[Rfam]
RNA sequence: CGGUCGUCGCUGGAAGGUGGCGGCUGACCGGGCAGGAGUCAGCAGAGGCCGUAGUACCGGUCGGGGAACGGAACAGCCGGGAAGGGC
Numbered sequence: 001c002g003g004u005c006g007u008c009g010c011u012g013g014a015a016g017g018u019g020g021c022g023g024c025u026g027a028c029c030g031g032g033c034a035g036g037a038g039u040c041a042g043c044a045g046a047g048g049c050c051g052u053a054g055u056a057c058c059g060g061u062c063g064g065g066g067a068a069c070g071g072a073a074c075a076g077c078c079g080g081g082a083a084g085g086g087c
Stems, first nucleotide, its partner, number of pairs: 001026002004023008039046002048087003057080005

A member of the RNA family "Group II catalytic intron D1-D4-1" from Geodermatophilus sp. DF01-2, 87 nucleotides long. The organism belongs to Geodermatophilus, within Bacteria. The base pairs follow the family's consensus structure.